RNA sequence: ACACAACUGAAUAGGCUCCUCAAGGGUGAUCGGCUCAUCCCCUCCUGAAAGGGGGUGAGCGAAAUGUCAACUCAUGAAGUGAUUUCACUCAUGCUCCAAUUCGGAUUGUUCCUCGUCGCGGCAUUAUCACUGGUCGUAACGAUCAUGAAGCAUUGGUUUGACAUCAAGAACAAAAAGAAAUAGAUCGCCCCUUGAGUUUGGCGACUCGGCGAUCUAUUCUCUGAAUCCCAUAUGAGCCGACACCCUUUUGGGGUAUCAGUUGUGUCAACCGACCGUAGGUGUUCCAGCACCUAUG
Numbered sequence: 001a002c003a004c005a006a007c008u009g010a011a012u013a014g015g016c017u018c019c020u021c022a023a024g025g026g027u028g029a030u031c032g033g034c035u036c037a038u039c040c041c042c043u044c045c046u047g048a049a050a051g052g053g054g055g056u057g058a059g060c061g062a063a064a065u066g067u068c069a070a071c072u073c074a075u076g077a078a079g080u081g082a083u084u085u086c087a088c089u090c091a092u093g094c095u096c097c098a099a100u101u102c103g104g105a106u107u108g109u110u111c112c113u114c115g116u117c118g119c120g121g122c123a124u125u126a127u128c129a130c131u132g133g134u135c136g137u138a139a140c141g142a143u144c145a146u147g148a149a150g151c152a153u154u155g156g157u158u159u160g161a162c163a164u165c166a167a168g169a170a171c172a173a174a175a176a177g178a179a180a181u182a183g184a185u186c187g188c189c190c191c192u193u194g195a196g197u198u199u200g201g202c203g204a205c206u207c208g209g210c211g212a213u214c215u216a217u218u219c220u221c222u223g224a225a226u227c228c229c230a231u232a233u234g235a236g237c238c239g240a241c242a243c244c245c246u247u248u249u250g251g252g253g254u255a256u257c258a259g260u261u262g263u264g265u266c267a268a269c270c271g272a273c274c275g276u277a278g279g280u281g282u283u284c285c286a287g288c289a290c291c292u293a294u295g
Base pairs, nucleotide, nucleotide: 001265002264003263004262006260007259008258010256012240014238015237016236017235019196020195021194022193023192024191025190026189028186029185030184031183035058036057037056039054040053041052042051043050066162067161068160069159070158072156079094080093081092103154104153206224207223208222242254243253244252274295275294276293277292278291279290280289281288282287